Shown here is a 76-nucleotide RNA from Echeneis naucrates, a member of the family "U1A polyadenylation inhibition element (PIE)". It scores 73 bits against the family's covariance model. The family's consensus secondary structure is taken from published work. For this family Rfam cites "Global and Local Dynamics of the U1A Polyadenylation Inhibition Element (PIE) RNA and PIE RNA-U1A Complexes" (Clerte and Hall, Biochemistry, 2004). About the family: This family represents the U1A polyadenylation inhibition element (PIE). PIE is a regulatory RNA which is responsible for the regulation of the length of the polyA tail of the U1A pre-mRNA. The PIE is located in the U1A mRNA 3' UTR. PIE adopts a U-shaped structure, with binding sites for a single U1A protein at each bend and when complexed with the two proteins it blocks activity of poly(A) polymerase (PAP), and inhibits its activity.
[Rfam]
RNA sequence: UCAUAAAGCAUUGCACCCAGAGUCUGGUUUACCAGACAUUGUACCUGGAGCUUUUUCCUUUUAAAUAAUUAAAUGG
Numbered sequence: 001u002c003a004u005a006a007a008g009c010a011u012u013g014c015a016c017c018c019a020g021a022g023u024c025u026g027g028u029u030u031a032c033c034a035g036a037c038a039u040u041g042u043a044c045c046u047g048g049a050g051c052u053u054u055u056u057c058c059u060u061u062u063a064a065a066u067a068a069u070u071a072a073a074u075g076g
Base pairs, nucleotide, nucleotide: 005054006053007052008051009050017048018047019046020045022037023036024035025034026033